Overview: A member of the RNA family "Actinobacteria sRNA Ms_IGR-7" from Mycolicibacterium mageritense, 118 nucleotides long. By type it is a small RNA.

RNA sequence: CGGAAGUGCCUUUCUGACCUGGACUGAUUAGUGCGUCGAGAACACCAAUCUUCCCAGUUCAAAGGGCACUUUCCUCAUUCCGACACCCUGCGACCAGCCGAUACAUCGGUGGAUCGAG
Numbered sequence: 001c002g003g004a005a006g007u008g009c010c011u012u013u014c015u016g017a018c019c020u021g022g023a024c025u026g027a028u029u030a031g032u033g034c035g036u037c038g039a040g041a042a043c044a045c046c047a048a049u050c051u052u053c054c055c056a057g058u059u060c061a062a063a064g065g066g067c068a069c070u071u072u073c074c075u076c077a078u079u080c081c082g083a084c085a086c087c088c089u090g091c092g093a094c095c096a097g098c099c100g101a102u103a104c105a106u107c108g109g110u111g112g113a114u115c116g117a118g
Stems, first nucleotide, its partner, number of pairs: 002073012015061003019057004026050003032044002099116004104111002
A reference for the family is Li et al. (2013), "Identification of small RNAs in Mycobacterium smegmatis using heterologous Hfq", RNA. It is one of the family's seed sequences.